RNA sequence: ACUGAUCGAUGAUGACAGUAUUUGUAAUGGUGACUGCUGGAUGAAACUUGCGGAUAUGGGGCUGAGAUCAGUU
Numbered sequence: 001a002c003u004g005a006u007c008g009a010u011g012a013u014g015a016c017a018g019u020a021u022u023u024g025u026a027a028u029g030g031u032g033a034c035u036g037c038u039g040g041a042u043g044a045a046a047c048u049u050g051c052g053g054a055u056a057u058g059g060g061g062c063u064g065a066g067a068u069c070a071g072u073u
Stems, first nucleotide, its partner, number of pairs: 001072005
Annotation: This 73-nucleotide RNA sequence from Triplophysa tibetana belongs to the Rfam family "Small nucleolar RNA SNORD99". Its Rfam clan is "SNORD58 clan". By type it is a C/D-box small nucleolar RNA. The literature on the family includes a 2002 paper in Mol Cell Biol by Galardi et al., "Purified box C/D snoRNPs are able to reproduce site-specific 2'-O-methylation of target RNA in vitro". The family's consensus secondary structure was predicted with RNAalifold. Gene Ontology terms of the family: RNA processing and nucleolus. It scores 73 bits against the family's covariance model. Taxonomically the source falls in Triplophysa (Eukaryota, Metazoa, Deuterostomia, Cobitoidei).